[Rfam]
RNA: mir-15 microRNA precursor family
RNA sequence: CCUUAAAGUCCUGUAGCAGCACAUCAUGGUUUGCAAGCUCCGCCGCAGAUGCGAAUCAUUAUUUGCUGCUUGAGAAAAUUAAGG
Numbered sequence: 001c002c003u004u005a006a007a008g009u010c011c012u013g014u015a016g017c018a019g020c021a022c023a024u025c026a027u028g029g030u031u032u033g034c035a036a037g038c039u040c041c042g043c044c045g046c047a048g049a050u051g052c053g054a055a056u057c058a059u060u061a062u063u064u065g066c067u068g069c070u071u072g073a074g075a076a077a078a079u080u081a082a083g084g
Base pairs, nucleotide, nucleotide: 001084002083003082004081005080006079015070016069017068018067019066020065021064023062024061026059027058028057029056030055031054032053033052034051035050
Dot-bracket structure: ((((((........(((((((.((.((((((((((..............)))))))))).)).)))))))........))))))